The family of this 97-nucleotide RNA sequence from Desulfonema magnum is "TPP riboswitch aptamer (THI element)". Taxonomically the source falls in Desulfonema (Bacteria, Pseudomonadati, Thermodesulfobacteriota, Desulfobacterales). Vitamin B(1) in its active form thiamin pyrophosphate (TPP) is an essential coenzyme that is synthesised by coupling of pyrimidine and thiazole moieties in bacteria. The previously detected thiamin-regulatory element, thi box was extended, resulting in a new, highly conserved RNA secondary structure, the THI element, which is widely distributed in eubacteria and also occurs in some archaea. Analysis of operon structures identified a large number of new candidate thiamin-regulated genes, mostly transporters, in various prokaryotic organisms. The THI element is a riboswitch that directly binds to TPP to regulate gene expression through a variety of mechanisms in archaea, bacteria and eukaryotes. through a variety of mechanisms in archaea, bacteria and eukaryotes.
RNA sequence: AUUGAGUGUUAGGGGUGUCCGUAGAAACCAAGGACUGAGAUCAUACCCUUUACUUGAACUGGAUAAUGCCAGCGUAAGGAAACACCGAGCCGGAUAC
Numbered sequence: 001a002u003u004g005a006g007u008g009u010u011a012g013g014g015g016u017g018u019c020c021g022u023a024g025a026a027a028c029c030a031a032g033g034a035c036u037g038a039g040a041u042c043a044u045a046c047c048c049u050u051u052a053c054u055u056g057a058a059c060u061g062g063a064u065a066a067u068g069c070c071a072g073c074g075u076a077a078g079g080a081a082a083c084a085c086c087g088a089g090c091c092g093g094a095u096a097c
Stems, first nucleotide, its partner, number of pairs: 006085005011049004016043001017035004053078004059072004